Rfam assigns this 100-nucleotide RNA from Phaeosphaeria sp. MPI-PUGE-AT-0046c to the family "Small nucleolar RNA Z13/snr52". The family's RNA type in Rfam is C/D-box small nucleolar RNA. A search with the family's covariance model found it, with a score of 78 bits. Lineage of the source: Eukaryota > Fungi > leotiomyceta > Pleosporales > Phaeosphaeria. The family has 42 seed sequences and 1,203 matches in Rfam 15.1. Pairs were carried over by alignment from the consensus structure, which was predicted with PFOLD. Rfam links the family to the GO terms nucleolus and RNA processing.
[Rfam]
RNA sequence: CCUGGUCCGGUGAUGUAAUACUUUUCGGAUGUAAACCCAUAAACCACCGAGAGCGCAAAACCGUGUGGAUAUUUUCCGUUGCCUUCCUUCUGAGACCCUU
Numbered sequence: 001c002c003u004g005g006u007c008c009g010g011u012g013a014u015g016u017a018a019u020a021c022u023u024u025u026c027g028g029a030u031g032u033a034a035a036c037c038c039a040u041a042a043a044c045c046a047c048c049g050a051g052a053g054c055g056c057a058a059a060a061c062c063g064u065g066u067g068g069a070u071a072u073u074u075u076c077c078g079u080u081g082c083c084u085u086c087c088u089u090c091u092g093a094g095a096c097c098c099u100u
Stems, first nucleotide, its partner, number of pairs: 004099002026078004